[Rfam]
RNA sequence: ACGAAGAAGCCGUGAGGCUCAGGAUGGAUAGCGCCACGAAAACUUAAAUAUACAUAUAUAUUAUAUGUGUAUGAAUAUAGAUGGCGCUAUCCCUCCUGAGCUUUACAGAUUCUUUCG
Number, nucleotide and partner (000 for none) at each position: 001a000002c000003g000004a000005a000006g000007a000008a000009g000010c108011c000012g000013u000014g000015a000016g102017g101018c100019u099020c098021a097022g096023g095024a094025u000026g092027g091028a090029u089030a088031g087032c086033g085034c084035c083036a000037c000038g000039a000040a000041a000042a000043c000044u000045u000046a000047a000048a000049u000050a000051u000052a000053c000054a000055u000056a000057u000058a000059u000060a000061u000062u000063a000064u000065a000066u000067g000068u000069g000070u000071a000072u000073g000074a000075a000076u000077a000078u000079a000080g000081a000082u000083g035084g034085c033086g032087c031088u030089a029090u028091c027092c026093c000094u024095c023096c022097u021098g020099a019100g018101c017102u016103u000104u000105a000106c000107a000108g010109a000110u000111u000112c000113u000114u000115u000116c000117g000
RNA: MIR390 microRNA precursor family
Organism: Centaurea solstitialis